Annotation:
The family of this 98-nucleotide RNA from Alkalithermobacter paradoxus is "SAM riboswitch aptamer (S box leader)". A search with the family's covariance model found it, with a score of 85 bits.
[Rfam]
RNA sequence: GCCUUAUCAAGAGAGGUGGAGGGAUACGGCCCUAUGAAACCCAGCAACCGCCCGUUAGGGUACGGUGCUAAUUCCUGCAAAAUUUUGCAAGAUGAGGA
Number, nucleotide and partner (000 for none) at each position: 001g000002c097003c096004u095005u094006a093007u092008c091009a000010a000011g000012a000013g042014a000015g041016g040017u039018g000019g000020a000021g032022g031023g030024a000025u000026a000027c000028g075029g074030c023031c022032c021033u000034a000035u000036g000037a000038a000039a017040c016041c015042c013043a069044g068045c067046a066047a000048c065049c064050g061051c060052c059053c058054g000055u000056u000057a000058g053059g052060g051061u050062a000063c000064g049065g048066u046067g045068c044069u043070a000071a000072u000073u090074c029075c028076u000077g000078c087079a086080a085081a000082a000083u000084u000085u080086u079087g078088c000089a000090a073091g008092a007093u006094g005095a004096g003097g002098a000